[Rfam]
RNA: Small nucleolar RNA Z266
Organism: Rhododendron simsii
RNA sequence: UGGUGGCAAGAAUGAUGAAACAAUUAGAUGUCUGAGUGGAGUUUUCCCUGAAAGAAAAUUUUGAGGCUUAUUGAUAUUCUGACAUUGGCACUA
Number, nucleotide and partner (000 for none) at each position: 001u093002g092003g091004u090005g089006g000007c087008a086009a085010g083011a000012a000013u000014g000015a000016u000017g000018a000019a000020a000021c000022a000023a000024u000025u000026a000027g000028a000029u000030g000031u000032c000033u000034g000035a000036g000037u000038g000039g000040a000041g000042u000043u000044u000045u000046c000047c000048c000049u000050g000051a000052a000053a000054g000055a000056a000057a000058a000059u000060u000061u000062u000063g000064a000065g000066g000067c000068u000069u000070a000071u000072u000073g000074a000075u000076a000077u000078u000079c000080u000081g000082a000083c010084a000085u009086u008087g007088g000089c005090a004091c003092u002093a001